[Rfam]
RNA sequence: GAAGUCGGUCGGAUGGCCGCCGGUUCGCUUUUGGCGGACGGGAGGAAAGUCCGGACUCCGCAGGGCAGGGUGCUGGGUAACGCCCAGGGAGGGUAACCUCACGGACAGUGCCACAGAAAAGAUACCGCCCACGCUGCACCAUCGGCCGCAUGGCCCCGUGGGUAAGGGUGAAAAGGUGCGGUAAGAGCGCACCAGCGGCAUGGUGACAUGCCGGCUUGGCAAACCCCACUCGGAGCAAGGCCAAAUAGGUCCCGCCCCAUUCGGCAGAGAGCGGCCCGCUCUCGUGCUCCUUCAGGGGCAGGCGGGACGGGUAGGCUGCUUGAGCCCGGCGGUAACGCCGGGCCUAGAGGAAUGGUCAUCCGGUUGGUCCGCAAGGUCUGGCCGUACAGGAUCCGGCUUACAGACCGACUUCGGCC
Numbered sequence: 001g002a003a004g005u006c007g008g009u010c011g012g013a014u015g016g017c018c019g020c021c022g023g024u025u026c027g028c029u030u031u032u033g034g035c036g037g038a039c040g041g042g043a044g045g046a047a048a049g050u051c052c053g054g055a056c057u058c059c060g061c062a063g064g065g066c067a068g069g070g071u072g073c074u075g076g077g078u079a080a081c082g083c084c085c086a087g088g089g090a091g092g093g094u095a096a097c098c099u100c101a102c103g104g105a106c107a108g109u110g111c112c113a114c115a116g117a118a119a120a121g122a123u124a125c126c127g128c129c130c131a132c133g134c135u136g137c138a139c140c141a142u143c144g145g146c147c148g149c150a151u152g153g154c155c156c157c158g159u160g161g162g163u164a165a166g167g168g169u170g171a172a173a174a175g176g177u178g179c180g181g182u183a184a185g186a187g188c189g190c191a192c193c194a195g196c197g198g199c200a201u202g203g204u205g206a207c208a209u210g211c212c213g214g215c216u217u218g219g220c221a222a223a224c225c226c227c228a229c230u231c232g233g234a235g236c237a238a239g240g241c242c243a244a245a246u247a248g249g250u251c252c253c254g255c256c257c258c259a260u261u262c263g264g265c266a267g268a269g270a271g272c273g274g275c276c277c278g279c280u281c282u283c284g285u286g287c288u289c290c291u292u293c294a295g296g297g298g299c300a301g302g303c304g305g306g307a308c309g310g311g312u313a314g315g316c317u318g319c320u321u322g323a324g325c326c327c328g329g330c331g332g333u334a335a336c337g338c339c340g341g342g343c344c345u346a347g348a349g350g351a352a353u354g355g356u357c358a359u360c361c362g363g364u365u366g367g368u369c370c371g372c373a374a375g376g377u378c379u380g381g382c383c384g385u386a387c388a389g390g391a392u393c394c395g396g397c398u399u400a401c402a403g404a405c406c407g408a409c410u411u412c413g414g415c416c
Stems, first nucleotide, its partner, number of pairs: 001412010011401001012360007020042002023039006047399003051396005056235004064293002068231005073087005088102001089100004103226002108224002110220003125167002127163007175193006195215001196213007239317004249308006285300005324343008

This 416-nucleotide RNA sequence from Candidatus Methylomirabilis lanthanidiphila belongs to the Rfam family "Bacterial RNase P class A". A search with the family's covariance model found it, with a score of 305 bits.